[Rfam]
RNA sequence: ACUACUUGUCGCUUUAAGUUUUAUUUGCAACAUUUGAUCAUUCGUCUUAUUCAAAAAAUUGUGGAAUUAUUAUUUUUUGUGACUCGCUUUAUUAUAAAAAUACUUUAAGUAUGACGUAUCUUUUUUUAUAUUUACAUUAUUUUUUUAAAUAAGAUGAAUGGUCAAAUGUUGCAAGUAAAAAGUCAAAGCGACCACUAAU
Numbered sequence: 001a002c003u004a005c006u007u008g009u010c011g012c013u014u015u016a017a018g019u020u021u022u023a024u025u026u027g028c029a030a031c032a033u034u035u036g037a038u039c040a041u042u043c044g045u046c047u048u049a050u051u052c053a054a055a056a057a058a059u060u061g062u063g064g065a066a067u068u069a070u071u072a073u074u075u076u077u078u079g080u081g082a083c084u085c086g087c088u089u090u091a092u093u094a095u096a097a098a099a100a101u102a103c104u105u106u107a108a109g110u111a112u113g114a115c116g117u118a119u120c121u122u123u124u125u126u127u128a129u130a131u132u133u134a135c136a137u138u139a140u141u142u143u144u145u146u147a148a149a150u151a152a153g154a155u156g157a158a159u160g161g162u163c164a165a166a167u168g169u170u171g172c173a174a175g176u177a178a179a180a181a182g183u184c185a186a187a188g189c190g191a192c193c194a195c196u197a198a199u
Base pairs, nucleotide, nucleotide: 026173027172028171029170030169031168033166034165035164036163037162038161039160040159041158042157043156044155045154046153047152048151049150050149
A member of the RNA family "MIR812 microRNA precursor family" from Oryza glumipatula, 199 nucleotides long. Lineage of the source: Eukaryota > Tracheophyta > Magnoliopsida > Oryzeae > Oryza. The family's consensus secondary structure was predicted with RNAalifold. Rfam links the family to the GO terms miRNA-mediated post-transcriptional gene silencing and RISC complex.